[Rfam]
RNA: mir-135 microRNA precursor family
Organism: Electrophorus electricus
RNA sequence: UCACUGCUGUGUCUUAUGGCUUUCUAUUCCUGUGUGAUUUCUCUACCAUGUCAUGUAGGGUUCAAAGCCAUUAGGUGCAGAGUGGC
Numbered sequence: 001u002c003a004c005u006g007c008u009g010u011g012u013c014u015u016a017u018g019g020c021u022u023u024c025u026a027u028u029c030c031u032g033u034g035u036g037a038u039u040u041c042u043c044u045a046c047c048a049u050g051u052c053a054u055g056u057a058g059g060g061u062u063c064a065a066a067g068c069c070a071u072u073a074g075g076u077g078c079a080g081a082g083u084g085g086c
Stems, first nucleotide, its partner, number of pairs: 002085001005082001007080008016071008026062001028060010